The record is a 109-nucleotide sequence from Bacillus mesophilus, which matches "SAM riboswitch aptamer (S box leader)" in Rfam.
NCBI's taxonomy places the organism under Bacteria, Bacillota, Bacilli, Bacillaceae, Bacillus.
The family's consensus secondary structure is taken from published work.
RNA sequence: UUCUUAUCCAGAGAGGUGGAGGGGCUGGCCCUAUGAUACCCGGCAACCGGUUUUUAAGUAAACACGGUGCCAAUUCCUGCGGAGCAUUUAUUGCUCUGACAGAUAAGAA
Dot-bracket structure: ((((((((....(.(((...(((.[.[[)))......))))((((.(((.((.......)).)..))))))...(]].]((((((.......))))))..)))))))))